[Rfam]
Shown here is a 69-nucleotide RNA sequence from Lamprobacter modestohalophilus, a member of the family "int-alpA RNA". From the family's description: Acidobacteria (1 example), Planctomycetes (1 example), Proteobacteria. The family's consensus secondary structure is taken from published work.

RNA sequence: CGCCAGCCUAGGGUAGCUCCCGAAAAGGCGGACCACCUUCCCGCCCUGGCUGGCGCCCUUACCCGAAGG
Numbered sequence: 001c002g003c004c005a006g007c008c009u010a011g012g013g014u015a016g017c018u019c020c021c022g023a024a025a026a027g028g029c030g031g032a033c034c035a036c037c038u039u040c041c042c043g044c045c046c047u048g049g050c051u052g053g054c055g056c057c058c059u060u061a062c063c064c065g066a067a068g069g
Base pairs, nucleotide, nucleotide: 001055002054003053004052005051006050007049008048011021012020013019027045028044029043030042031041036068038066039065